[Rfam]
Nucleotides: 068
Base pairs, nucleotide, nucleotide: 005062006061008059011030013028015027016026017025018024035056036055038053040052041051042050044048
Number, partner (000 for none) and nucleotide at each position: 001000a002000g003000c004000g005062c006061g007000a008059c009000c010000g011030g012000a013028u014000c015027g016026a017025c018024c019000g020000c021000g022000c023000g024018g025017g026016u027015c028013a029000c030011c031000a032000c033000g034000a035056g036055g037000u038053a039000g040052u041051c042050g043000c044048g045000c046000a047000g048044c049000a050042c051041g052040a053038u054000u055036c056035c057000g058000u059008g060000g061006c062005g063000g064000u065000u066000c067000u068000c